[Rfam]
RNA sequence: GGUCAAUGAUGUGAUAAUGUAAGAGGCCUGAUGCCCAGUUCCACUCACUGCUAUCCAUCGGCUCCUAACAGCCCCUGCUCUAUUCUCAGCAUGCUCUAGUUGUGCAUCGUUGGAUACAGAGGCUGCUGACACCGAGGAUGAUGUCACAUCCUGUGUCUUUAAGAGACCAAUGGCGUCACUGUGAUGACAGACAUCCAACAGAACCAAUCCAUAAGGAGUAUCAGGCUGUAGUACGGGGCUGGGCCGCUGAUCUCAACUUUCAAACUGAGACC
Numbered sequence: 001g002g003u004c005a006a007u008g009a010u011g012u013g014a015u016a017a018u019g020u021a022a023g024a025g026g027c028c029u030g031a032u033g034c035c036c037a038g039u040u041c042c043a044c045u046c047a048c049u050g051c052u053a054u055c056c057a058u059c060g061g062c063u064c065c066u067a068a069c070a071g072c073c074c075c076u077g078c079u080c081u082a083u084u085c086u087c088a089g090c091a092u093g094c095u096c097u098a099g100u101u102g103u104g105c106a107u108c109g110u111u112g113g114a115u116a117c118a119g120a121g122g123c124u125g126c127u128g129a130c131a132c133c134g135a136g137g138a139u140g141a142u143g144u145c146a147c148a149u150c151c152u153g154u155g156u157c158u159u160u161a162a163g164a165g166a167c168c169a170a171u172g173g174c175g176u177c178a179c180u181g182u183g184a185u186g187a188c189a190g191a192c193a194u195c196c197a198a199c200a201g202a203a204c205c206a207a208u209c210c211a212u213a214a215g216g217a218g219u220a221u222c223a224g225g226c227u228g229u230a231g232u233a234c235g236g237g238g239c240u241g242g243g244c245c246g247c248u249g250a251u252c253u254c255a256a257c258u259u260u261c262a263a264a265c266u267g268a269g270a271c272c
Stems, first nucleotide, its partner, number of pairs: 001272004037253002040250002044231002047229002050226002062218004066128002069125004084114002087112004094104001136196001140195006153179003157175001159173003

Small Cajal body specific RNA 6: a 272-nucleotide RNA sequence from Coregonus sp. 'balchen'. Its family is annotated with RNA processing and nucleolus in the Gene Ontology. About the family: U88 is small Cajal body specific RNA (scaRNA). scaRNAs are a novel class of small nuclear RNAs which localise to the Cajal bodies. U88 is found associated with both fibrillarin and Gar1p and co-localises with coilin in Cajal bodies. The family's consensus secondary structure is taken from published work. A search with the family's covariance model found it, with a score of 91 bits. A reference for the family is Darzacq et al. (2002), "Cajal body-specific small nuclear RNAs: a novel class of 2'-O-methylation and pseudouridylation guide RNAs", EMBO J.